[Rfam]
RNA: L31-Gammaproteobacteria ribosomal protein leader
RNA sequence: CACUCGGUGCCGAAUUCAGUUUCGGAAAGCGGAGUGGCUUCAGAUUGAGGU
Numbered sequence: 001c002a003c004u005c006g007g008u009g010c011c012g013a014a015u016u017c018a019g020u021u022u023c024g025g026a027a028a029g030c031g032g033a034g035u036g037g038c039u040u041c042a043g044a045u046u047g048a049g050g051u
Stems, first nucleotide, its partner, number of pairs: 001036005007030002010025005